[Rfam]
RNA sequence: ACGCGCCGGUGGUAACCGGCCACAACAGGGAAUGAUGGACGCAGCCAUUUUGCCGGUUUCUCGCUGCGACACCAACGCAUCGGUACGCGUGGACAUCUAACCUGUUCCGAGC
Number, nucleotide and partner (000 for none) at each position: 001a000002c000003g000004c000005g000006c111007c109008g108009g000010u022011g021012g020013u019014a000015a000016c000017c000018g000019g013020c012021c011022a010023c000024a106025a105026c104027a103028g102029g101030g000031a000032a000033u000034g097035a096036u095037g094038g000039a000040c068041g067042c066043a065044g064045c063046c000047a000048u000049u000050u000051u000052g000053c000054c000055g000056g000057u000058u000059u000060c000061u000062c000063g045064c044065u043066g042067c041068g040069a000070c000071a084072c083073c082074a000075a000076c000077g000078c000079a000080u000081c000082g073083g072084u071085a000086c000087g000088c000089g000090u000091g000092g000093a000094c037095a036096u035097c034098u000099a000100a000101c029102c028103u027104g026105u025106u024107c000108c008109g007110a000111g006112c000
RNA: Rhizobiales sRNA Atu_At1